[Rfam]
RNA sequence: CUAGUCUCUUUCUCUCCGGGCAGGGAGGGGAAAAGGCGACACUCUCAAAUUGCGGGAAACCCCUAAAGCUUCAGGUACCAAGCCAGAAGCCGAAAGGCUCUGGUGGCCAGGUUAAUUGCCUCGGGUAUGGUCAUAACCCUGAAGAUAUAACAAUGGGCAAUCCGCAGCCAAGCUCCUGCAUCUAUUUUUUAAGACUAUAAAUAUGGAGAAGGUUCAGAGACUAAAUGGGAGUGGGUAGCUUGAAAACUCUAGAAAGUGGAGACGAUUCUAGAGCUUAACGAGUUGCUUAAGAUAUAGUCCGUCUGUAGGUGAAAGCCUAUG
Numbered sequence: 001c002u003a004g005u006c007u008c009u010u011u012c013u014c015u016c017c018g019g020g021c022a023g024g025g026a027g028g029g030g031a032a033a034a035g036g037c038g039a040c041a042c043u044c045u046c047a048a049a050u051u052g053c054g055g056g057a058a059a060c061c062c063c064u065a066a067a068g069c070u071u072c073a074g075g076u077a078c079c080a081a082g083c084c085a086g087a088a089g090c091c092g093a094a095a096g097g098c099u100c101u102g103g104u105g106g107c108c109a110g111g112u113u114a115a116u117u118g119c120c121u122c123g124g125g126u127a128u129g130g131u132c133a134u135a136a137c138c139c140u141g142a143a144g145a146u147a148u149a150a151c152a153a154u155g156g157g158c159a160a161u162c163c164g165c166a167g168c169c170a171a172g173c174u175c176c177u178g179c180a181u182c183u184a185u186u187u188u189u190u191a192a193g194a195c196u197a198u199a200a201a202u203a204u205g206g207a208g209a210a211g212g213u214u215c216a217g218a219g220a221c222u223a224a225a226u227g228g229g230a231g232u233g234g235g236u237a238g239c240u241u242g243a244a245a246a247c248u249c250u251a252g253a254a255a256g257u258g259g260a261g262a263c264g265a266u267u268c269u270a271g272a273g274c275u276u277a278a279c280g281a282g283u284u285g286c287u288u289a290a291g292a293u294a295u296a297g298u299c300c301g302u303c304u305g306u307a308g309g310u311g312a313a314a315g316c317c318u319a320u321g
Stems, first nucleotide, its partner, number of pairs: 040233005046227002051166006061157003167213002173208004181201001183199003217300001219299005235286008306319005
Rfam assigns this 321-nucleotide sequence from Trichoglossum hirsutum to the family "Group I catalytic intron". Pairs were carried over by alignment from the consensus structure, which is taken from published work. Group I catalytic introns are large self-splicing ribozymes. NCBI's taxonomy places the organism under Eukaryota, Opisthokonta, Ascomycota, Geoglossales, Trichoglossum.